[Rfam]
RNA: mir-8834 microRNA precursor family
RNA sequence: AGGAGGAACAACCACAGUGGCGGCAGCCAGCUCUGGAGCCCUGGAUUCAGCUCCCGUAGUAACUAUGGAGCUCUCCAUCAACAGGGGCCUGGAGGCUCCGGGGGGCA
Number, nucleotide and partner (000 for none) at each position: 001a000002g099003g098004a097005g096006g000007a000008a000009c091010a090011a000012c087013c086014a000015c000016a000017g000018u000019g079020g078021c000022g076023g075024c000025a074026g073027c000028c000029a072030g071031c070032u069033c068034u067035g066036g000037a064038g000039c000040c000041c059042u058043g057044g000045a000046u000047u000048c000049a000050g000051c000052u000053c000054c000055c000056g000057u043058a042059g041060u000061a000062a000063c000064u037065a000066u035067g034068g033069a032070g031071c030072u029073c026074u025075c023076c022077a000078u020079c019080a000081a000082c000083a000084g000085g000086g013087g012088c000089c000090u010091g009092g000093a000094g000095g000096c005097u004098c003099c002100g000101g000102g000103g000104g000105g000106c000107a000